[Rfam]
RNA sequence: CAGAGAUGCCCUCUCACUAGGACCGAUUGGUUCCUUCAGCAAGAUCAAUCGUCCCAGCUCAGGAGGGCAUCUCGCCUUCUUACGGCCGAACCGUUACCCAAAACCACCGGUGGAUCGAG
Numbered sequence: 001c002a003g004a005g006a007u008g009c010c011c012u013c014u015c016a017c018u019a020g021g022a023c024c025g026a027u028u029g030g031u032u033c034c035u036u037c038a039g040c041a042a043g044a045u046c047a048a049u050c051g052u053c054c055c056a057g058c059u060c061a062g063g064a065g066g067g068c069a070u071c072u073c074g075c076c077u078u079c080u081u082a083c084g085g086c087c088g089a090a091c092c093g094u095u096a097c098c099c100a101a102a103a104c105c106a107c108c109g110g111u112g113g114a115u116c117g118a119g
Base pairs, nucleotide, nucleotide: 003073004072005071006070007069008068009067010066011065012064013063015062016059018057020055021054024051025050026049027048029046031044032043099117101115104113105112106111